[Rfam]
RNA: mir-6 microRNA precursor family
RNA sequence: ACCGCAGGGAACUGUCGCUGCUGAUAUAUAUAUAUUAUUGUUAUAUAUAAUUUAAAAAUGAUUUUCUAUAUCACAGUGGCUGUUCUUUUUGGUU
Dot-bracket structure: ..((.(((((((..((((((.((.((((......................................)))).))))))))..))))))).))...